[Rfam]
RNA sequence: GCUGAAUUUUGGUGUAAAUUCAAUCCCCUAAAUUUAAGAUGAUAAAAAAUUCUCCAUUGAUAACAAAUGAUUAUUCAUUAAGCGGAGAAAAUCUUAU
Numbered sequence: 001g002c003u004g005a006a007u008u009u010u011g012g013u014g015u016a017a018a019u020u021c022a023a024u025c026c027c028c029u030a031a032a033u034u035u036a037a038g039a040u041g042a043u044a045a046a047a048a049a050u051u052c053u054c055c056a057u058u059g060a061u062a063a064c065a066a067a068u069g070a071u072u073a074u075u076c077a078u079u080a081a082g083c084g085g086a087g088a089a090a091a092u093c094u095u096a097u
Stems, first nucleotide, its partner, number of pairs: 009023004052087004056078002059075005

The record is a 97-nucleotide sequence from Anisodus acutangulus, which matches "Plastid-rps12 3UTR RNA" in Rfam. Rfam classes the family as a cis-regulatory element. The organism belongs to Anisodus, within Eukaryota. The match comes from Rfam's covariance-model search (92 bits). Pairs were carried over by alignment from the consensus structure, which was predicted with LocARNA.